[Rfam]
RNA sequence: GACUGCUUUCAAAACAUCACCUCUCAGCAGUCGCGGCUG
Numbered sequence: 001g002a003c004u005g006c007u008u009u010c011a012a013a014a015c016a017u018c019a020c021c022u023c024u025c026a027g028c029a030g031u032c033g034c035g036g037c038u039g
Stems, first nucleotide, its partner, number of pairs: 001032007
Rfam assigns this 39-nucleotide RNA to the family "S4-Bacteroidia ribosomal protein leader". Rfam's curators put it in the seed alignment. On this family, see Eckert and Weinberg, BMC Microbiol 2020: "Discovery of 20 novel ribosomal leader candidates in bacteria and archaea".